RNA: Fluoride riboswitch aptamer (crcB RNA motif)
RNA sequence: UUCCGCGAUGGGGAUGGAGUCCCCCGAAACUGCCUCGUCGGUCGAACCCGAAAGGCUGAUGACUCCUGCCGCGUG
Numbered sequence: 001u002u003c004c005g006c007g008a009u010g011g012g013g014a015u016g017g018a019g020u021c022c023c024c025c026g027a028a029a030c031u032g033c034c035u036c037g038u039c040g041g042u043c044g045a046a047c048c049c050g051a052a053a054g055g056c057u058g059a060u061g062a063c064u065c066c067u068g069c070c071g072c073g074u075g
Base pairs, nucleotide, nucleotide: 010025011024012023013022016066017065018064019063020062021061032056033055034054035053